This 66-nucleotide RNA sequence from Peromyscus maniculatus belongs to the Rfam family "mir-344 microRNA precursor family". Gene Ontology terms of the family: miRNA-mediated post-transcriptional gene silencing and RISC complex.

RNA sequence: UUGCCAGUCAGGCACCUGGCUAAAGUCCAUCUCUUAGGUGGAUUUAGCCAGGAGCCUGGCUGUAAA
Numbered sequence: 001u002u003g004c005c006a007g008u009c010a011g012g013c014a015c016c017u018g019g020c021u022a023a024a025g026u027c028c029a030u031c032u033c034u035u036a037g038g039u040g041g042a043u044u045u046a047g048c049c050a051g052g053a054g055c056c057u058g059g060c061u062g063u064a065a066a
Base pairs, nucleotide, nucleotide: 007060008059009058011056012055013054017050018049019048020047021046022045023044024043027041028040029039030038031037